RNA sequence: ACCUAGGUGGCGGAAUUGGUAGACGCACCAGCUUGAGGGGCUGGCGCCUGUAUGGGUGUGGGAGUUCGAAUCUCCUCUUGGGUA
Dot-bracket structure: (((((((..(((...........))).(((((.......)))))...............(((((.......)))))))))))).
RNA: tRNA
Organism: Pedobacter polaris